Archaeal RNase P: a 299-nucleotide RNA sequence from methanogenic archaeon ISO4-H5. Lineage of the source: Archaea > Methanobacteriati > Thermoplasmatota > Thermoplasmata. Rfam describes the family as follows. Ribonuclease P (RNase P) is a ubiquitous endoribonuclease, found in archaea, bacteria and eukarya as well as chloroplasts and mitochondria. Its family is annotated with tRNA processing, ribonuclease P activity and multimeric ribonuclease P complex in the Gene Ontology. The family's consensus secondary structure is taken from published work. For this family Rfam cites "The Ribonuclease P Database" (Brown, Nucleic Acids Res, 1999).

RNA sequence: AAUAGAGAGAGGACGGCUAACGGUAGGGCCUUCGGGCCCGGCUGAGGAAGUUCCCUCCUCCACGGGCAAAGAUGAACUGAGAAAUUCAGUAAGGCGAGAGCCUUGGCAAGGGCCCAGAAACGACACAGCCCCGGUAAACAGGAUGACCUGUUCGGCAGCGACAUUCCCGGGGAUUUGGUGAAACGGCGACUCCUCAUCGGAGCAAGCUCACACAGCCGGGAUGAGAUGCCUGCGACCGGCGGGUAGAGUGCGUUAGUUGAAUGCUGUCUGAAACAGAAGGGGGGCUACUACUCUGAAUU
Numbered sequence: 001a002a003u004a005g006a007g008a009g010a011g012g013a014c015g016g017c018u019a020a021c022g023g024u025a026g027g028g029c030c031u032u033c034g035g036g037c038c039c040g041g042c043u044g045a046g047g048a049a050g051u052u053c054c055c056u057c058c059u060c061c062a063c064g065g066g067c068a069a070a071g072a073u074g075a076a077c078u079g080a081g082a083a084a085u086u087c088a089g090u091a092a093g094g095c096g097a098g099a100g101c102c103u104u105g106g107c108a109a110g111g112g113c114c115c116a117g118a119a120a121c122g123a124c125a126c127a128g129c130c131c132c133g134g135u136a137a138a139c140a141g142g143a144u145g146a147c148c149u150g151u152u153c154g155g156c157a158g159c160g161a162c163a164u165u166c167c168c169g170g171g172g173a174u175u176u177g178g179u180g181a182a183a184c185g186g187c188g189a190c191u192c193c194u195c196a197u198c199g200g201a202g203c204a205a206g207c208u209c210a211c212a213c214a215g216c217c218g219g220g221a222u223g224a225g226a227u228g229c230c231u232g233c234g235a236c237c238g239g240c241g242g243g244u245a246g247a248g249u250g251c252g253u254u255a256g257u258u259g260a261a262u263g264c265u266g267u268c269u270g271a272a273a274c275a276g277a278a279g280g281g282g283g284g285c286u287a288c289u290a291c292u293c294u295g296a297a298u299u
Stems, first nucleotide, its partner, number of pairs: 001299003006294004010289002012268006021044004049286003053283005058202004063232005071198005076090005091104005105193002112187002126177003129172006136165001148158002206249004215240005